Shown here is an 85-nucleotide sequence, a member of the family "GA-cis RNA".

[Rfam]
RNA sequence: UGAGGGAGACGCCAAAUGCGAUAGCAUUUCCGAAAAUGGCAUCGACCGAUAUGCCACUGAGCGAAGCGAGGGGGCGCUACAACAG
Numbered sequence: 001u002g003a004g005g006g007a008g009a010c011g012c013c014a015a016a017u018g019c020g021a022u023a024g025c026a027u028u029u030c031c032g033a034a035a036a037u038g039g040c041a042u043c044g045a046c047c048g049a050u051a052u053g054c055c056a057c058u059g060a061g062c063g064a065a066g067c068g069a070g071g072g073g074g075c076g077c078u079a080c081a082a083c084a085g
Base pairs, nucleotide, nucleotide: 008043009042011040012039013038015028016027017026018025019024053075054074055073057071058070061067062066
It is annotated as a small RNA.